[Rfam]
RNA: chrB-a RNA
RNA sequence: CCUAUGGGGAUCGAUCUGCGAACGCCCCGUGAGGCGUCAGCCAGAGGUUCGCAUGUUUCCAGACGUAAAAGGAUGCAUGCUAUG
Numbered sequence: 001c002c003u004a005u006g007g008g009g010a011u012c013g014a015u016c017u018g019c020g021a022a023c024g025c026c027c028c029g030u031g032a033g034g035c036g037u038c039a040g041c042c043a044g045a046g047g048u049u050c051g052c053a054u055g056u057u058u059c060c061a062g063a064c065g066u067a068a069a070a071g072g073a074u075g076c077a078u079g080c081u082a083u084g
Base pairs, nucleotide, nucleotide: 005029006028007027008026009025051080052079053078054077055076056075